Shown here is a 55-nucleotide RNA sequence from Gemmata sp. SH-PL17, a member of the family "Acido-Lenti-1 RNA".
RNA sequence: CCCAGGGUGGAGCAACGCGCAACCCUGGGCUACGCUCUGCCGCCCCUACGGGGCU
Numbered sequence: 001c002c003c004a005g006g007g008u009g010g011a012g013c014a015a016c017g018c019g020c021a022a023c024c025c026u027g028g029g030c031u032a033c034g035c036u037c038u039g040c041c042g043c044c045c046c047u048a049c050g051g052g053g054c055u
Base pairs, nucleotide, nucleotide: 001029002028003027004026005025006024007023008022042054043053044052045051046050

The base pairs follow the family's consensus structure, which is taken from published work. A search with the family's covariance model found it, with a score of 42 bits.